[Rfam]
About this RNA: The record is a 181-nucleotide RNA sequence from Pseudomonas sp. M30-35, which matches "Pseudomonas sRNA P1" in Rfam. A reference for the family is Livny et al. (2006), "Identification of 17 Pseudomonas aeruginosa sRNAs and prediction of sRNA-encoding genes in 10 diverse pathogens using the bioinformatic tool sRNAPredict2", Nucleic Acids Res. The family's RNA type in Rfam is non-coding RNA gene. Rfam's curators write: This small RNA (sRNA) was computationally identified in the genome of the opportunistic pathogen Pseudomonas aeruginosa and its expression verified by northern blot analysis. A search with the family's covariance model found it, with a score of 123 bits.
RNA sequence: ACACCCGUUUUAUUGCUGUUAGUGGGUUUGAGCCGAGCUUAGCCUUGUUCAUUUUUUUUCACAAUAGCCAUGUAAAAAAUUAAACACACACCACUGAGCACCGCACAGGCAAAGGCUUUCACGAUCACUGAAAAGCCCCGAAACGCCCUGAAAUUGGCCAUGCAGCACCUUUUUGGGGCAA
Numbered sequence: 001a002c003a004c005c006c007g008u009u010u011u012a013u014u015g016c017u018g019u020u021a022g023u024g025g026g027u028u029u030g031a032g033c034c035g036a037g038c039u040u041a042g043c044c045u046u047g048u049u050c051a052u053u054u055u056u057u058u059u060c061a062c063a064a065u066a067g068c069c070a071u072g073u074a075a076a077a078a079a080u081u082a083a084a085c086a087c088a089c090a091c092c093a094c095u096g097a098g099c100a101c102c103g104c105a106c107a108g109g110c111a112a113a114g115g116c117u118u119u120c121a122c123g124a125u126c127a128c129u130g131a132a133a134a135g136c137c138c139c140g141a142a143a144c145g146c147c148c149u150g151a152a153a154u155u156g157g158c159c160a161u162g163c164a165g166c167a168c169c170u171u172u173u174u175g176g177g178g179c180a181a
Base pairs, nucleotide, nucleotide: 024102025101028098029097035094037092045086047085048084049083053079054078055077056076057075058074060072165179166178168176